[Rfam]
RNA sequence: CUGCAUGUUUAUCCAAGAGCUGUGGCUCCACGCAGUAGCUGCAGGUCUCCAACAACAUGCCAGAGCAAUUGGAAGGUCUUUGACUGCUGGGGCCUCCUCUGCCUAUGGCAGUCACUCGCCCCUCCGAUACAU
Numbered sequence: 001c002u003g004c005a006u007g008u009u010u011a012u013c014c015a016a017g018a019g020c021u022g023u024g025g026c027u028c029c030a031c032g033c034a035g036u037a038g039c040u041g042c043a044g045g046u047c048u049c050c051a052a053c054a055a056c057a058u059g060c061c062a063g064a065g066c067a068a069u070u071g072g073a074a075g076g077u078c079u080u081u082g083a084c085u086g087c088u089g090g091g092g093c094c095u096c097c098u099c100u101g102c103c104u105a106u107g108g109c110a111g112u113c114a115c116u117c118g119c120c121c122c123u124c125c126g127a128u129a130c131a132u
Stems, first nucleotide, its partner, number of pairs: 013044001018040002020035005071125003075121002086112002090104003